A member of the RNA family "SAM riboswitch aptamer (S box leader)" from Bacillus methanolicus, 111 nucleotides long. Taxonomically the source falls in Bacillus methanolicus (Bacteria, Bacilli, Caryophanales, Bacillus). The family's consensus secondary structure is taken from published work. From the family's description: The SAM riboswitch is found upstream of a number of genes which code for proteins involved in methionine or cysteine biosynthesis in Gram-positive bacteria. The match comes from Rfam's covariance-model search (98 bits).

[Rfam]
RNA sequence: CUCUUAUCCAGAGUGACGGAGGGAUCAGGCCCGAUGAAGUCCGGCAACCUUCAAGCAAUGCUUGAAAAGGUGCCAAUUCCUGCAGACAAUUCAUUGUCUGAAAGAUAAGAG
Numbered sequence: 001c002u003c004u005u006a007u008c009c010a011g012a013g014u015g016a017c018g019g020a021g022g023g024a025u026c027a028g029g030c031c032c033g034a035u036g037a038a039g040u041c042c043g044g045c046a047a048c049c050u051u052c053a054a055g056c057a058a059u060g061c062u063u064g065a066a067a068a069g070g071u072g073c074c075a076a077u078u079c080c081u082g083c084a085g086a087c088a089a090u091u092c093a094u095u096g097u098c099u100g101a102a103a104g105a106u107a108a109g110a111g
Base pairs, nucleotide, nucleotide: 001111002110003109004108005107006106007105008104013042015041016040017039021032022031023030026082027081028080029079043074044073045072046071048070049069050066051065052064053063078103083100084099085098086097087096088095